Record summary: This 72-nucleotide sequence from Schizosaccharomyces pombe belongs to the Rfam family "tRNA". The organism belongs to Schizosaccharomyces, within Eukaryota. Transfer RNA (tRNA) molecules are approximately 80 nucleotides in length. Pairs were carried over by alignment from the consensus structure, which is taken from published work.
RNA sequence: GCAGAUAUAAGUCAAUUGGCAGACCUUCUGAUUUCCACUUAGAUUAUGUUCGUUCGAAUCGGACUAUCUGCA
Number, nucleotide and partner (000 for none) at each position: 001g071002c070003a069004g068005a067006u066007a065008u000009a000010a000011g024012u023013c022014a000015a000016u000017u000018g000019g000020c000021a000022g013023a012024c011025c000026u000027u043028c042029u041030g040031a039032u000033u000034u000035c000036c000037a000038c000039u031040u030041a029042g028043a027044u000045u000046a000047u000048g064049u063050u062051c061052g060053u000054u000055c000056g000057a000058a000059u000060c052061g051062g050063a049064c048065u007066a006067u005068c004069u003070g002071c001072a000